[Rfam]
RNA sequence: GCCUGGGGUAGAGGUGCUGUAAUAAAUAGUAGGUAUAAGGAGUUUGCAGACGAUGAUUUAUACUAAAAGGUAUUAUAGCCGAAGAAAUAGAUUAUUAUGCAGUGGUUUAUUUCUGGGGAUUCAUAGAAUAUGUGAAUAACUGUCACGAAAGUGUUGAGCUACAAGGUGA
Numbered sequence: 001g002c003c004u005g006g007g008g009u010a011g012a013g014g015u016g017c018u019g020u021a022a023u024a025a026a027u028a029g030u031a032g033g034u035a036u037a038a039g040g041a042g043u044u045u046g047c048a049g050a051c052g053a054u055g056a057u058u059u060a061u062a063c064u065a066a067a068a069g070g071u072a073u074u075a076u077a078g079c080c081g082a083a084g085a086a087a088u089a090g091a092u093u094a095u096u097a098u099g100c101a102g103u104g105g106u107u108u109a110u111u112u113c114u115g116g117g118g119a120u121u122c123a124u125a126g127a128a129u130a131u132g133u134g135a136a137u138a139a140c141u142g143u144c145a146c147g148a149a150a151g152u153g154u155u156g157a158g159c160u161a162c163a164a165g166g167u168g169a
Base pairs, nucleotide, nucleotide: 008162009161010160011159016079017078018077019076020075021074022073023072024071032064033063034062035061036060037059038058039057083114084113085112086111087110088109089108090107091106092105093104094103115141116140119137120136121135122134123133124132125131144153145152146151
Overview: Rfam assigns this 169-nucleotide RNA sequence from Clostridium sp. Maddingley MBC34-26 to the family "Lysine riboswitch aptamer". The match comes from Rfam's covariance-model search (95 bits).